[Rfam]
RNA sequence: UCAGUUGCAAUCUAGCAUCUGGGGCUUACAGACGAGUAUUUGAUUACUCUAUAUAUUGCCUCGGGAAGGUCUGAGAUUUGGUCAAAGUUCAGAAAAAAACAUGUUGUGUUAUACAUGUGAACUUAAACUAAUAAAUUUUCUAGCAGGAAACUUGUAUGAUUAAAAGGCAAAGGGACAAGAAAUUCUGGUUUGUUUUUGUUACAAAAAUGAUCCAUUGAAAUCUUUUGUGACCAGCAAUUUUAGUGCGAUGUGCUUGCUGUUUGAAAAUAAGUUGCAAAACUUGUUAUAGAACAGAACUCAAUUCAGACUAAUCUGUGACUGA
Numbered sequence: 001u002c003a004g005u006u007g008c009a010a011u012c013u014a015g016c017a018u019c020u021g022g023g024g025c026u027u028a029c030a031g032a033c034g035a036g037u038a039u040u041u042g043a044u045u046a047c048u049c050u051a052u053a054u055a056u057u058g059c060c061u062c063g064g065g066a067a068g069g070u071c072u073g074a075g076a077u078u079u080g081g082u083c084a085a086a087g088u089u090c091a092g093a094a095a096a097a098a099a100c101a102u103g104u105u106g107u108g109u110u111a112u113a114c115a116u117g118u119g120a121a122c123u124u125a126a127a128c129u130a131a132u133a134a135a136u137u138u139u140c141u142a143g144c145a146g147g148a149a150a151c152u153u154g155u156a157u158g159a160u161u162a163a164a165a166g167g168c169a170a171a172g173g174g175a176c177a178a179g180a181a182a183u184u185c186u187g188g189u190u191u192g193u194u195u196u197u198g199u200u201a202c203a204a205a206a207a208u209g210a211u212c213c214a215u216u217g218a219a220a221u222c223u224u225u226u227g228u229g230a231c232c233a234g235c236a237a238u239u240u241u242a243g244u245g246c247g248a249u250g251u252g253c254u255u256g257c258u259g260u261u262u263g264a265a266a267a268u269a270a271g272u273u274g275c276a277a278a279a280c281u282u283g284u285u286a287u288a289g290a291a292c293a294g295a296a297c298u299c300a301a302u303u304c305a306g307a308c309u310a311a312u313c314u315g316u317g318a319c320u321g322a
Stems, first nucleotide, its partner, number of pairs: 001322004007316003012256001014254005021062005034049005071306005080232004136150005151166003155162002167228007187213002257294006